[Rfam]
This 102-nucleotide sequence from Virgibacillus salexigens belongs to the Rfam family "Purine riboswitch aptamer".
RNA sequence: AAAUUAAUCAGACAUGCCGUUCGUAUAUCCUCGAUAAUAUGGGUCGAAAGUUUCUACCGGAGCACCGUAAAUGCUCUGACUAUGAAGGCAGAAGAUCAGUAU
Numbered sequence: 001a002a003a004u005u006a007a008u009c010a011g012a013c014a015u016g017c018c019g020u021u022c023g024u025a026u027a028u029c030c031u032c033g034a035u036a037a038u039a040u041g042g043g044u045c046g047a048a049a050g051u052u053u054c055u056a057c058c059g060g061a062g063c064a065c066c067g068u069a070a071a072u073g074c075u076c077u078g079a080c081u082a083u084g085a086a087g088g089c090a091g092a093a094g095a096u097c098a099g100u101a102u
Stems, first nucleotide, its partner, number of pairs: 018088001020086006031047005058078007